[Rfam]
RNA sequence: ACCAUGAAGCAGAUGAUGAGAAACUGGGUCUGACAGACUGUGCUGAGUUUGUUCAAUCCAACCCUGAGCUUCAUGGU
Numbered sequence: 001a002c003c004a005u006g007a008a009g010c011a012g013a014u015g016a017u018g019a020g021a022a023a024c025u026g027g028g029u030c031u032g033a034c035a036g037a038c039u040g041u042g043c044u045g046a047g048u049u050u051g052u053u054c055a056a057u058c059c060a061a062c063c064c065u066g067a068g069c070u071u072c073a074u075g076g077u
Stems, first nucleotide, its partner, number of pairs: 001077010

Shown here is a 77-nucleotide RNA sequence from Erinaceus europaeus, a member of the family "Small nucleolar RNA SNORD69".
The family's RNA type in Rfam is C/D-box small nucleolar RNA.
For this family Rfam cites "RNomics: an experimental approach that identifies 201 candidates for novel, small, non-messenger RNAs in mouse" (Huttenhofer et al., EMBO J, 2001).
Rfam describes the family as follows. snoRNA HBII-210 belongs to the C/D family of snoRNAs. It is the human orthologue of the mouse MBII-210 and is predicted to guide the 2'O-ribose methylation of large 28S rRNA on residue G4464.
The sequence is in the family's curated seed alignment.